Shown here is a 75-nucleotide RNA from Haemonchus placei, a member of the family "mir-5928 microRNA precursor family". Gene Ontology terms of the family: miRNA-mediated post-transcriptional gene silencing and RISC complex. The family has 5 seed sequences and 1,672 matches in Rfam 15.1. The base pairs follow the family's consensus structure, which was predicted with RNAalifold. NCBI's taxonomy places the organism under Eukaryota, Opisthokonta, Ecdysozoa, Trichostrongylidae, Haemonchus.
RNA sequence: GGUCCAAACUUGUAGUAGAGUAGAUUGAUACGAUCAGUUGACCAUAUUAAAUUACUUUACUUCAAGUUUGUGCAU
Numbered sequence: 001g002g003u004c005c006a007a008a009c010u011u012g013u014a015g016u017a018g019a020g021u022a023g024a025u026u027g028a029u030a031c032g033a034u035c036a037g038u039u040g041a042c043c044a045u046a047u048u049a050a051a052u053u054a055c056u057u058u059a060c061u062u063c064a065a066g067u068u069u070g071u072g073c074a075u
Stems, first nucleotide, its partner, number of pairs: 002073002005070005011064002014061010025050006032043001034041002